[Rfam]
Nucleotides: 095
Stems, first nucleotide, its partner, number of pairs: 009044002012041001015037005020031003068088007
Number, partner (000 for none) and nucleotide at each position: 001000a002000a003000u004000a005000a006000u007000u008000g009044g010043u011000g012041g013000u014000g015037g016036c017035a018034c019033u020031c021030c022029u023000a024000c025000u026000u027000a028000c029022g030021g031020g032000c033019g034018g035017u036016g037015u038000g039000a040000a041012u042000a043010g044009c045000u046000g047000u048000a049000a050000c051000u052000c053000a054000g055000c056000a057000a058000a059000a060000u061000u062000g063000c064000a065000a066000c067000g068088a069087g070086c071085c072084c073083g074082c075000c076000a077000u078000c079000a080000a081000u082074g083073c084072g085071g086070g087069c088068u089000u090000u091000u092000u093000u094000a095000u